[Rfam]
RNA: U7 small nuclear RNA
Organism: Rattus norvegicus
RNA sequence: AAAUUGUAUAGCUCUUUUAGAAUUCUUUUCUAACAGGAUUUCUGACCUUGGUCAGAAAUCACAA
Numbered sequence: 001a002a003a004u005u006g007u008a009u010a011g012c013u014c015u016u017u018u019a020g021a022a023u024u025c026u027u028u029u030c031u032a033a034c035a036g037g038a039u040u041u042c043u044g045a046c047c048u049u050g051g052u053c054a055g056a057a058a059u060c061a062c063a064a
Base pairs, nucleotide, nucleotide: 037060038059039058040057041056042055043054044053045052046051